[Rfam]
Nucleotides: 089
Base pairs, nucleotide, nucleotide: 001089002088003087004086005085
Number, partner (000 for none) and nucleotide at each position: 001089g002088g003087g004086c005085u006000u007000a008000u009000g010000a011000u012000g013000a014000a015000a016000a017000a018000u019000u020000a021000a022000a023000a024000u025000u026000a027000u028000c029000u030000u031000a032000g033000c034000g035000g036000a037000u038000u039000u040000c041000a042000g043000u044000g045000a046000g047000g048000c049000u050000u051000u052000u053000u054000u055000g056000g057000c058000c059000a060000a061000u062000g063000a064000u065000c066000u067000g068000a069000u070000u071000g072000u073000u074000a075000c076000a077000c078000a079000c080000a081000c082000u083000g084000a085005a086004g087003c088002c089001u
Source information
Small nucleolar RNA R11/Z151: an 89-nucleotide RNA sequence from Citrus x clementina. NCBI's taxonomy places the organism under Eukaryota, Streptophytina, Mesangiospermae, Aurantioideae, Citrus. Gene Ontology terms of the family: nucleolus and RNA processing. The base pairs follow the family's consensus structure, which was predicted with PFOLD. By type it is a C/D-box small nucleolar RNA. The literature on the family includes a 2001 paper in J Mol Biol by Barneche et al., "Identification of 66 box C/D snoRNAs in Arabidopsis thaliana: extensive gene duplications generated multiple isoforms predicting new ribosomal RNA 2'-O-methylation sites".